[Rfam]
RNA sequence: GCGUCAAAAACACCAGCAGCACAUGAAGGUUUGUAGACUCUCCACGGAGAGUCUACUAACCUUCAUGUGCUGCUGGUGUUUUUGACGC
Numbered sequence: 001g002c003g004u005c006a007a008a009a010a011c012a013c014c015a016g017c018a019g020c021a022c023a024u025g026a027a028g029g030u031u032u033g034u035a036g037a038c039u040c041u042c043c044a045c046g047g048a049g050a051g052u053c054u055a056c057u058a059a060c061c062u063u064c065a066u067g068u069g070c071u072g073c074u075g076g077u078g079u080u081u082u083u084g085a086c087g088c
Base pairs, nucleotide, nucleotide: 001088002087003086004085005084006083013076014075015074016073017072018071019070020069021068022067023066024065026063027062028061029060030059031058033056034055035054036053
Background
A member of the RNA family "mir-15 microRNA precursor family" from Gadus morhua, 88 nucleotides long. This family represents the related mir-15a and mir-15b sequences. In humans miR-15a and miR-16 are clustered within 0.5 kb at 13q14. The family is grouped with related families in Rfam's "mir-15 clan".